This 73-nucleotide RNA sequence from Scleropages formosus belongs to the Rfam family "mir-23 microRNA precursor family". A search with the family's covariance model found it, with a score of 62 bits.

RNA sequence: GGCCAGGGGAAUUCCUGGCAGAGUGAUUUUGGAAUUAGGGACUGAAUCACAUUGCCAGGGAUUUCCAAUGGCC
Numbered sequence: 001g002g003c004c005a006g007g008g009g010a011a012u013u014c015c016u017g018g019c020a021g022a023g024u025g026a027u028u029u030u031g032g033a034a035u036u037a038g039g040g041a042c043u044g045a046a047u048c049a050c051a052u053u054g055c056c057a058g059g060g061a062u063u064u065c066c067a068a069u070g071g072c073c
Base pairs, nucleotide, nucleotide: 001073003071004070005069009066011062012061013060014059015058016057017056018055019054020053021052023050024049025048026047027046028045029044
Taxonomically the source falls in Scleropages (Eukaryota, Gnathostomata, Teleostomi, Osteoglossocephalai).